RNA sequence: UCUUCAUUUUACGCGCUCUCUCUCCGGUCAAAGUAGCGAGAAAGUGCGCGAAAUGAAGAGA
Numbered sequence: 001u002c003u004u005c006a007u008u009u010u011a012c013g014c015g016c017u018c019u020c021u022c023u024c025c026g027g028u029c030a031a032a033g034u035a036g037c038g039a040g041a042a043a044g045u046g047c048g049c050g051a052a053a054u055g056a057a058g059a060g061a
Stems, first nucleotide, its partner, number of pairs: 001059007010050001012048006019041004

A member of the RNA family "mir-8364 microRNA precursor family" from Pristionchus pacificus, 61 nucleotides long. The family's consensus secondary structure was predicted with RNAalifold. The family has 13 seed sequences and 3,320 matches in Rfam 15.1.